[Rfam]
RNA sequence: AAUGUGAUCGCGGGAGAGGCCGGGUGAAAAGAUCCCGGCGCCGAAGGAGCAACCGCCCCGGAAACUCUCAGGCAAAAGGACCGCGGCGCUACA
Number, nucleotide and partner (000 for none) at each position: 001a000002a000003u000004g000005u000006g000007a000008u086009c085010g084011c083012g082013g081014g000015a000016g000017a000018g000019g000020c038021c037022g036023g035024g000025u000026g000027a000028a000029a000030a000031g000032a000033u000034c000035c023036c022037g021038g020039c000040g073041c072042c071043g069044a068045a000046g000047g067048a066049g065050c000051a000052a000053c061054c060055g000056c000057c000058c000059c000060g054061g053062a000063a000064a000065c049066u048067c047068u044069c043070a000071g042072g041073c040074a000075a000076a000077a000078g000079g000080a000081c013082c012083g011084c010085g009086g008087c000088g000089c000090u000091a000092c000093a000